Overview
Rfam assigns this 37-nucleotide RNA sequence from Rhodospirillum rubrum to the family "CRISPR RNA direct repeat element". The base pairs follow the family's consensus structure, which was predicted with WAR. The sequence is in the family's curated seed alignment.
[Rfam]
RNA sequence: GUCUCCCGAGGCAGUAAUGCCUCGGCCUCAUUGAAAC
Numbered sequence: 001g002u003c004u005c006c007c008g009a010g011g012c013a014g015u016a017a018u019g020c021c022u023c024g025g026c027c028u029c030a031u032u033g034a035a036a037c
Stems, first nucleotide, its partner, number of pairs: 006025007